[Rfam]
RNA sequence: CCCAGGGCGACGUAAUUCGUUGAAUUACUUUGCCCUGGGCUCAAAUAUUACGCACUUUCAGCGCU
Number, nucleotide and partner (000 for none) at each position: 001c039002c038003c037004a036005g035006g034007g033008c032009g031010a030011c000012g000013u000014a000015a000016u000017u000018c000019g000020u000021u000022g000023a000024a000025u000026u000027a000028c000029u000030u010031u009032g008033c007034c006035c005036u004037g003038g002039g001040c000041u000042c000043a000044a000045a000046u000047a000048u000049u000050a000051c000052g064053c063054a000055c061056u060057u000058u000059c000060a056061g055062c000063g053064c052065u000
Description: The family of this 65-nucleotide RNA sequence from Draconibacterium sediminis is "Acido-Lenti-1 RNA". The family has 87 seed sequences and 2,607 matches in Rfam 15.1. Lineage of the source: Bacteria > Pseudomonadati > Bacteroidota > Prolixibacteraceae > Draconibacterium. The family's RNA type in Rfam is small RNA.